[Rfam]
RNA: PyrR binding site
Organism: Fervidicola ferrireducens
Nucleotides: 131
Base pairs, nucleotide, nucleotide: 004036005035006034007033008032013030014029015028016027017026018025052086053085054084055083056082057081058080059079060078061077062076063075064074065073096124097123098122099121100120101119102118103117104116105115106114
Number, partner (000 for none) and nucleotide at each position: 001000c002000a003000a004036g005035c006034c007033u008032u009000u010000a011000a012000a013030c014029u015028g016027g017026u018025c019000c020000u021000g022000u023000g024000a025018g026017g027016c028015u029014a030013g031000u032008a033007a034006g035005g036004c037000a038000a039000a040000g041000g042000g043000a044000a045000g046000a047000a048000a049000a050000a051000a052086g053085a054084a055083a056082g057081c058080c059079u060078u061077u062076c063075u064074c065073u066000g067000c068000c069000u070000g071000a072000c073065a074064g075063a076062g077061g078060a079059a080058g081057g082056c083055u084054u085053u086052u087000u088000u089000u090000a091000u092000a093000a094000g095000a096124a097123a098122g099121c100120c101119c102118c103117u104116g105115c106114u107000g108000c109000c110000u111000c112000a113000c114106a115105g116104c117103a118102g119101g120100g121099g122098u123097u124096u125000a126000a127000a128000u129000u130000u131000u